Source information:
t44 RNA: a 91-nucleotide sequence from Candidatus Sedimenticola endophacoides. The family's consensus secondary structure was predicted with LocARNA. This family consists of a number of bacterial RNA genes of between 135 and 170 bases in length. A search with the family's covariance model found it, with a score of 66 bits. On this family, see Tjaden et al., Nucleic Acids Res 2002: "Transcriptome analysis of Escherichia coli using high-density oligonucleotide probe arrays".
[Rfam]
RNA sequence: GGCGGCCCGAAACGACUACACACACGUAUCGACACGCCUGCUGGGGUGCCUGGGAAACCGGGUCGGCAGCCGGGAUGCGUGGAGGACCAAC
Number, nucleotide and partner (000 for none) at each position: 001g000002g000003c000004g000005g000006c000007c000008c000009g000010a000011a000012a000013c000014g000015a000016c000017u000018a000019c000020a000021c000022a000023c081024a080025c079026g078027u077028a076029u075030c074031g000032a000033c000034a000035c072036g071037c000038c069039u068040g067041c066042u065043g064044g000045g000046g000047u000048g063049c062050c061051u060052g059053g000054g000055a000056a000057a000058c000059c052060g051061g050062g049063u048064c043065g042066g041067c040068a039069g038070c000071c036072g035073g000074g030075a029076u028077g027078c026079g025080u024081g023082g000083a000084g000085g000086a000087c000088c000089a000090a000091c000